[Rfam]
Nucleotides: 055
Stems, first nucleotide, its partner, number of pairs: 001055006008048001010046003014042003018039002020036004024031002
Number, partner (000 for none) and nucleotide at each position: 001055u002054c003053c004052u005051g006050u007000g008048u009000g010046g011045g012044a013000u014042c015041u016040g017000a018039g019038g020036a021035g022034u023033g024031g025030g026000u027000g028000a029000g030025u031024c032000u033023c034022a035021u036020u037000c038019c039018c040016c041015a042014g043000c044012u045011c046010c047000a048008g049000a050006g051005c052004a053003g054002g055001a
Notes: Rfam assigns this 55-nucleotide RNA sequence from Saimiri boliviensis to the family "mir-3193 microRNA precursor family". Gene Ontology terms of the family: miRNA-mediated post-transcriptional gene silencing and RISC complex. The source organism's lineage runs through Eukaryota, Teleostomi, Amniota, Saimiri and Saimiri boliviensis.